[Rfam]
RNA: PyrR binding site
RNA sequence: AAAUCCUUUAAAUUAGUCCCGUGAGACUAAGAAGGAACUAUCGCACUGAAAGACUCAGUGUAUGCAACUCGACGAUAGCGCCUCUUACCUCACGGUAAGAGGCUUUUUUAUU
Numbered sequence: 001a002a003a004u005c006c007u008u009u010a011a012a013u014u015a016g017u018c019c020c021g022u023g024a025g026a027c028u029a030a031g032a033a034g035g036a037a038c039u040a041u042c043g044c045a046c047u048g049a050a051a052g053a054c055u056c057a058g059u060g061u062a063u064g065c066a067a068c069u070c071g072a073c074g075a076u077a078g079c080g081c082c083u084c085u086u087a088c089c090u091c092a093c094g095g096u097a098a099g100a101g102g103c104u105u106u107u108u109u110a111u112u
Stems, first nucleotide, its partner, number of pairs: 004036006013030006044060006077106002080103010